[Rfam]
RNA sequence: CCCGCGGCAAGACGGAAAGACCCCGUGAACCUUUACUAUAGCUUGACACUGAAUAUUGAACCUUAAUGUGUAGGAUAGGUGGGAGGCUGUGAAGCGUGGACGCUAGUCCACGGGGAGCCAUCCUUGAAAUACCACCCUUUAGAGUUUGGUGUUCUAACAUAGGUCCGUUAGCCGGACUGUGGACAGUGUCUGGUGGGUAGUUUGACUGGGGCGGUCUCCUCCCAAAGCGUAACGGAGGAGCACAAAGGUUGGCUAAUCCUGGUCGGACAUCAGGAGGUUAGUGUAAUGGCAUAAGCCAACUUGACUGCGAGAGUGACGGCUCGAGCAGGUGCGAAAGCAGGUCAUAGUGAUCCGGUGGUUCUGAAUGGAAGGGCCAUCGCUCAACGGAUAAAAGGUACUCCGGGGAUAACAGGCUGAUACCGCCCAAGAGUUCAUAUCGACGGCGGUGUUUGGCACCUCGAUGUCGGCUCAUCACAUCCUGGGGCUGAAGUAGGUCCCAAGGGUAUGGCUGUUCGCCAUUUAAAGUGGUACGCGAGCUGGGUUUAGAACGUCGUGAGACAGUUCGGUCCCUAUCUGCCGUGGGCGUU
Numbered sequence: 001c002c003c004g005c006g007g008c009a010a011g012a013c014g015g016a017a018a019g020a021c022c023c024c025g026u027g028a029a030c031c032u033u034u035a036c037u038a039u040a041g042c043u044u045g046a047c048a049c050u051g052a053a054u055a056u057u058g059a060a061c062c063u064u065a066a067u068g069u070g071u072a073g074g075a076u077a078g079g080u081g082g083g084a085g086g087c088u089g090u091g092a093a094g095c096g097u098g099g100a101c102g103c104u105a106g107u108c109c110a111c112g113g114g115g116a117g118c119c120a121u122c123c124u125u126g127a128a129a130u131a132c133c134a135c136c137c138u139u140u141a142g143a144g145u146u147u148g149g150u151g152u153u154c155u156a157a158c159a160u161a162g163g164u165c166c167g168u169u170a171g172c173c174g175g176a177c178u179g180u181g182g183a184c185a186g187u188g189u190c191u192g193g194u195g196g197g198u199a200g201u202u203u204g205a206c207u208g209g210g211g212c213g214g215u216c217u218c219c220u221c222c223c224a225a226a227g228c229g230u231a232a233c234g235g236a237g238g239a240g241c242a243c244a245a246a247g248g249u250u251g252g253c254u255a256a257u258c259c260u261g262g263u264c265g266g267a268c269a270u271c272a273g274g275a276g277g278u279u280a281g282u283g284u285a286a287u288g289g290c291a292u293a294a295g296c297c298a299a300c301u302u303g304a305c306u307g308c309g310a311g312a313g314u315g316a317c318g319g320c321u322c323g324a325g326c327a328g329g330u331g332c333g334a335a336a337g338c339a340g341g342u343c344a345u346a347g348u349g350a351u352c353c354g355g356u357g358g359u360u361c362u363g364a365a366u367g368g369a370a371g372g373g374c375c376a377u378c379g380c381u382c383a384a385c386g387g388a389u390a391a392a393a394g395g396u397a398c399u400c401c402g403g404g405g406a407u408a409a410c411a412g413g414c415u416g417a418u419a420c421c422g423c424c425c426a427a428g429a430g431u432u433c434a435u436a437u438c439g440a441c442g443g444c445g446g447u448g449u450u451u452g453g454c455a456c457c458u459c460g461a462u463g464u465c466g467g468c469u470c471a472u473c474a475c476a477u478c479c480u481g482g483g484g485c486u487g488a489a490g491u492a493g494g495u496c497c498c499a500a501g502g503g504u505a506u507g508g509c510u511g512u513u514c515g516c517c518a519u520u521u522a523a524a525g526u527g528g529u530a531c532g533c534g535a536g537c538u539g540g541g542u543u544u545a546g547a548a549c550g551u552c553g554u555g556a557g558a559c560a561g562u563u564c565g566g567u568c569c570c571u572a573u574c575u576g577c578c579g580u581g582g583g584c585g586u587u
Stems, first nucleotide, its partner, number of pairs: 001583008010575003014570002022404004027400002029396005035201004042193002045190004051154011063142004068137001078136005085119003095112007158181003162178006204216004217239006240385001242342002248300006254280002257275006281290002305328004311322003330339003353379007361372002413454003417451001418448007428438002465540001466538004470532001471529005478503002481498006505519005546564004550559003